[Rfam]
RNA sequence: GCAUACGAGGGCGAUGGAGUUCGCCCGAAAUUCGUUUUUACGAUGAUGACUCCUGUCCAAAG
Numbered sequence: 001g002c003a004u005a006c007g008a009g010g011g012c013g014a015u016g017g018a019g020u021u022c023g024c025c026c027g028a029a030a031u032u033c034g035u036u037u038u039u040a041c042g043a044u045g046a047u048g049a050c051u052c053c054u055g056u057c058c059a060a061a062g
Stems, first nucleotide, its partner, number of pairs: 010025004016053006032043004
Description: Rfam assigns this 62-nucleotide RNA sequence from Cloacibacillus evryensis to the family "Fluoride riboswitch aptamer (crcB RNA motif)". The source organism's lineage runs through Bacteria, Thermotogati, Synergistota, Synergistia and Cloacibacillus evryensis. Gene Ontology terms of the family: response to fluoride and positive regulation of gene expression.